[Rfam]
RNA sequence: CCUGCCAGUGGUCCUUACACUCCGUGUAUUUGACAAGCUGAGCUCGACACUCAUUAUGACAGGAGUGUCAGUUUGUCAAAUACCCCAAGUGUGAGGUCAAUUGCC
Dot-bracket structure: .................((((..(.((((((((((((((......((((.((..........)).)))))))))))))))))).)..))))..............
RNA: mir-223 microRNA precursor family